[Rfam]
RNA: Glutamine riboswitch aptamer (glnA leader)
RNA sequence: AUCGUUCAACUCAAUAGAGUCGGAAGUACCCAUCAUAGGGGAAGGAACGCACU
Numbered sequence: 001a002u003c004g005u006u007c008a009a010c011u012c013a014a015u016a017g018a019g020u021c022g023g024a025a026g027u028a029c030c031c032a033u034c035a036u037a038g039g040g041g042a043a044g045g046a047a048c049g050c051a052c053u
Base pairs, nucleotide, nucleotide: 003049004048005047006046007045009020010019011018012017023050029040030039031038